[Rfam]
RNA sequence: UCUUUAGCCCCUUACAAUUGCUUUAAAAGACAACGCCCCAGGAUGGGAACAUAGCAAGGCACCUUUUAUUGUGGUGUGUUUGGGUAUCUGAAGAGGG
Numbered sequence: 001u002c003u004u005u006a007g008c009c010c011c012u013u014a015c016a017a018u019u020g021c022u023u024u025a026a027a028a029g030a031c032a033a034c035g036c037c038c039c040a041g042g043a044u045g046g047g048a049a050c051a052u053a054g055c056a057a058g059g060c061a062c063c064u065u066u067u068a069u070u071g072u073g074g075u076g077u078g079u080u081u082g083g084g085u086a087u088c089u090g091a092a093g094a095g096g097g
Stems, first nucleotide, its partner, number of pairs: 004091004009084003014079001015076001017075005024068006035060003043052003

A member of the RNA family "Bacterial small signal recognition particle RNA" from Arcobacter sp. FWKO B, 97 nucleotides long.
The signal recognition particle (SRP) is a universally conserved ribonucleoprotein involved in the co-translational targeting of proteins to membranes.
NCBI's taxonomy places the organism under Bacteria, Epsilonproteobacteria, Campylobacterales, Arcobacteraceae, Arcobacter.
The base pairs follow the family's consensus structure, which is taken from published work.
By type it is a non-coding RNA gene.
Gene Ontology terms of the family: signal recognition particle, plasma membrane targeting and SRP-dependent cotranslational protein targeting to membrane, signal sequence recognition.
The match comes from Rfam's covariance-model search (45 bits).